[Rfam]
RNA: Selenocysteine transfer RNA
RNA sequence: GUCAGGGUGAGUCGGGCUGGUGCUCGGACGAGACUUCAAUUCUCGGGGCAUGAGGACACGCAGAUGUUCGAUUCUCCCGCCUUGAC
Numbered sequence: 001g002u003c004a005g006g007g008u009g010a011g012u013c014g015g016g017c018u019g020g021u022g023c024u025c026g027g028a029c030g031a032g033a034c035u036u037c038a039a040u041u042c043u044c045g046g047g048g049c050a051u052g053a054g055g056a057c058a059c060g061c062a063g064a065u066g067u068u069c070g071a072u073u074c075u076c077c078c079g080c081c082u083u084g085a086c
Base pairs, nucleotide, nucleotide: 001086002085003084004083005082006081007080008079009078012027013026014025015024016023017022029045030044031043032042033041048061049060051058052057063077066074
Dot-bracket structure: (((((((((..((((((....)))))).(((((.......)))))..((.((....)).)).(..(.......)..))))))))))